[Rfam]
RNA sequence: AAUAGAGUUAGAGGUUGCAUUAUUAAUGACUAACUUAUCAGAAGUCGUAUGGGACAUGUGUUGAAUAAGUGAAAGGUAAUAAUGCCGAAAUGAUGUUAUUUCCAUAAAUUAGCAUUGUUGGGACAACUUUCGAAUAGAAGUUGUACUGUCACUUUAUGUGAUGUGCUACCUUAUAU
Number, nucleotide and partner (000 for none) at each position: 001a000002a000003u000004a000005g000006a171007g170008u000009u168010a167011g166012a000013g000014g000015u000016u000017g085018c084019a083020u082021u081022a080023u079024u078025a077026a000027u000028g000029a000030c000031u000032a000033a070034c069035u068036u067037a066038u065039c000040a000041g000042a000043a000044g000045u000046c000047g000048u000049a000050u000051g000052g000053g000054a000055c000056a000057u000058g000059u000060g000061u000062u000063g000064a000065a038066u037067a036068a035069g034070u033071g000072a000073a000074a000075g000076g000077u025078a024079a023080u022081a021082a020083u019084g018085c017086c000087g000088a000089a119090a118091u117092g116093a115094u114095g113096u112097u111098a110099u000100u108101u000102c000103c000104a000105u000106a000107a000108a100109u000110u098111a097112g096113c095114a094115u093116u092117g091118u090119u089120g147121g146122g000123a144124c143125a142126a141127c140128u139129u138130u137131c000132g000133a000134a000135u000136a000137g130138a129139a128140g127141u126142u125143g124144u123145a000146c121147u120148g000149u161150c160151a159152c158153u000154u000155u000156a000157u000158g152159u151160g150161a149162u000163g000164u000165g000166c011167u010168a009169c000170c007171u006172u000173a000174u000175a000176u000

This 176-nucleotide sequence from Staphylococcus epidermidis belongs to the Rfam family "Lysine riboswitch aptamer". For this family Rfam cites "Riboswitches Control Fundamental Biochemical Pathways in Bacillus subtilis and Other Bacteria" (Mandal et al., Cell, 2003). Riboswitches are metabolite binding domains within certain messenger RNAs that serve as precision sensors for their corresponding targets. Allosteric rearrangement of mRNA structure is mediated by ligand binding, and this results in modulation of gene expression. This family includes riboswitches that sense lysine in a number of genes involved in lysine metabolism, including lysC.